This 230-nucleotide RNA from Gordonia insulae belongs to the Rfam family "Actinobacteria sRNA Ms_IGR-5".
The pairing is the family consensus, mapped onto this sequence.
It is annotated as a small RNA.
RNA sequence: ACACGAGGAAGGAGGUGGUUCGAAGUUGUAUGACUAUUGGACACGUGAGGUGACCAUCCGCUAGCGCGGAUUCGUGGCAUUCACUGCCACGGGAGUGCAGCCGGUCGGCCGUCGAGGUCGGCGGACUCGCACCUUCGUGUUGGCGAAUUCCAGAUGGUCACCCGGCCCCCGCACCUCGAUCCUGUCUGAUCGAUCCAGCCCGUCACCGGGCGGUGCGGGGGUCGUUUCCG
Numbered sequence: 001a002c003a004c005g006a007g008g009a010a011g012g013a014g015g016u017g018g019u020u021c022g023a024a025g026u027u028g029u030a031u032g033a034c035u036a037u038u039g040g041a042c043a044c045g046u047g048a049g050g051u052g053a054c055c056a057u058c059c060g061c062u063a064g065c066g067c068g069g070a071u072u073c074g075u076g077g078c079a080u081u082c083a084c085u086g087c088c089a090c091g092g093g094a095g096u097g098c099a100g101c102c103g104g105u106c107g108g109c110c111g112u113c114g115a116g117g118u119c120g121g122c123g124g125a126c127u128c129g130c131a132c133c134u135u136c137g138u139g140u141u142g143g144c145g146a147a148u149u150c151c152a153g154a155u156g157g158u159c160a161c162c163c164g165g166c167c168c169c170c171g172c173a174c175c176u177c178g179a180u181c182c183u184g185u186c187u188g189a190u191c192g193a194u195c196c197a198g199c200c201c202g203u204c205a206c207c208g209g210g211c212g213g214u215g216c217g218g219g220g221g222u223c224g225u226u227u228c229c230g
Stems, first nucleotide, its partner, number of pairs: 014058006059145007067137004074132002163224013176193006
It scores 104 bits against the family's covariance model.
Lineage of the source: Bacteria > Bacillati > Actinomycetota > Actinomycetes > Gordonia.